Notes: A member of the RNA family "SAM-I/IV (S-adenosyl methionine) riboswitch aptamer" from Oncorhynchus tshawytscha, 106 nucleotides long. A reference for the family is Weinberg et al. (2008), "The aptamer core of SAM-IV riboswitches mimics the ligand-binding site of SAM-I riboswitches", RNA. Its Rfam clan is "SAM clan". Gene Ontology terms of the family: S-adenosylmethionine metabolic process and regulation of gene expression.
[Rfam]
RNA sequence: AGUACACAUUACGAGUUGGGCUGACGCCCACGCCAACCUGCCUCCCGGGGCAAGGUGGUUCGCCUUAAAGCAGAUGCGGCUCCUCGGAGCAACCAAGCCGGCAGCG
Numbered sequence: 001a002g003u004a005c006a007c008a009u010u011a012c013g014a015g016u017u018g019g020g021c022u023g024a025c026g027c028c029c030a031c032g033c034c035a036a037c038c039u040g041c042c043u044c045c046c047g048g049g050g051c052a053a054g055g056u057g058g059u060u061c062g063c064c065u066u067a068a069a070g071c072a073g074a075u076g077c078g079g080c081u082c083c084u085c086g087g088a089g090c091a092a093c094c095a096a097g098c099c100g101g102c103a104g105c106g
Base pairs, nucleotide, nucleotide: 007076008075009074010073015031017030018029019028020027021026032059033058034057037055038054039053040051041050042049045101046100047099048098079090080089081088082087
Dot-bracket structure: ......((((....(.(((((....))))))(((..((((((..[[[[))).))).))).............))))..((((....)))).......]]]].....